RNA sequence: CCGUUCAGACAGGGAGAACCCGGCAAGACGCGCCGGUGCCGAAGGAGCAACCGCCCCGGUAAACUCUCAGGCAACAGGGACCUGUCUGCGCCA
Numbered sequence: 001c002c003g004u005u006c007a008g009a010c011a012g013g014g015a016g017a018a019c020c021c022g023g024c025a026a027g028a029c030g031c032g033c034c035g036g037u038g039c040c041g042a043a044g045g046a047g048c049a050a051c052c053g054c055c056c057c058g059g060u061a062a063a064c065u066c067u068c069a070g071g072c073a074a075c076a077g078g079g080a081c082c083u084g085u086c087u088g089c090g091c092c093a
Base pairs, nucleotide, nucleotide: 006088007087008086009085010084011083012082013081020036021035022034023033038072039071040070041068042067045066046065047064051059052058
RNA: Glycine riboswitch aptamer
Organism: Rhodophyticola porphyridii